Overview:
This 149-nucleotide RNA sequence from Oceanibaculum indicum belongs to the Rfam family "FMN riboswitch aptamer (RFN element)". Lineage of the source: Bacteria > Pseudomonadati > Rhodospirillales > Oceanibaculum > Oceanibaculum indicum. A search with the family's covariance model found it, with a score of 115 bits.
[Rfam]
RNA sequence: UGACGUUCUCAGGGCGGGGUGAAACUCCCCACCGGCGGUAAGCAGGCUGGUCCUGCAAAGCCCGCGAGCGCCCGACCGCAAGGCCGGGGUCAGCAGAUCCGGUGAGAUGCCGGAGCCGACGGUUAAAGUCCGGAUGGAAGAGAACGGGC
Numbered sequence: 001u002g003a004c005g006u007u008c009u010c011a012g013g014g015c016g017g018g019g020u021g022a023a024a025c026u027c028c029c030c031a032c033c034g035g036c037g038g039u040a041a042g043c044a045g046g047c048u049g050g051u052c053c054u055g056c057a058a059a060g061c062c063c064g065c066g067a068g069c070g071c072c073c074g075a076c077c078g079c080a081a082g083g084c085c086g087g088g089g090u091c092a093g094c095a096g097a098u099c100c101g102g103u104g105a106g107a108u109g110c111c112g113g114a115g116c117c118g119a120c121g122g123u124u125a126a127a128g129u130c131c132g133g134a135u136g137g138a139a140g141a142g143a144a145c146g147g148g149c
Base pairs, nucleotide, nucleotide: 004146005145006144007143008142009141010140017029018028019027031129032128033118034117035065036064037063038062060116061115068094069093098114099113100112101111102110120132121131122130